[Rfam]
RNA sequence: UGUCUCCUCCAACUCUCCUUGAAUUGGAUUUACCCGCUCACCGCAAGGUCAGCGGGUUUUUUU
Numbered sequence: 001u002g003u004c005u006c007c008u009c010c011a012a013c014u015c016u017c018c019u020u021g022a023a024u025u026g027g028a029u030u031u032a033c034c035c036g037c038u039c040a041c042c043g044c045a046a047g048g049u050c051a052g053c054g055g056g057u058u059u060u061u062u063u
Stems, first nucleotide, its partner, number of pairs: 008028005014022002033056006040049001

A member of the RNA family "Betaproteobacteria toxic small RNA" from Noviherbaspirillum galbum, 63 nucleotides long. The family's consensus secondary structure was predicted with WAR. Lineage of the source: Bacteria > Pseudomonadota > Burkholderiales > Oxalobacteraceae > Noviherbaspirillum. Rfam describes the family as follows. Overexpression in amino aid rich medium attenuates growth, suggesting role in repressing amino acid intake and metabolism.